A member of the RNA family "Small nucleolar RNA SNORD58" from Semnornis frantzii, 67 nucleotides long. Rfam links the family to the GO terms nucleolus and RNA processing. The literature on the family includes a 2002 paper in Mol Cell Biol by Galardi et al., "Purified box C/D snoRNPs are able to reproduce site-specific 2'-O-methylation of target RNA in vitro". From the family's description: snoRNA U58 is found in introns 1, 3 and 6 of the ribosomal protein RPL17 gene in humans. It scores 70 bits against the family's covariance model.
RNA sequence: UGGCUAUGAUGACAAUCUUAGGACACCUUUGGAACAACCAUGAUAAAAAUCAAUUUAUCUGAGCCAU
Numbered sequence: 001u002g003g004c005u006a007u008g009a010u011g012a013c014a015a016u017c018u019u020a021g022g023a024c025a026c027c028u029u030u031g032g033a034a035c036a037a038c039c040a041u042g043a044u045a046a047a048a049a050u051c052a053a054u055u056u057a058u059c060u061g062a063g064c065c066a067u
Stems, first nucleotide, its partner, number of pairs: 001066004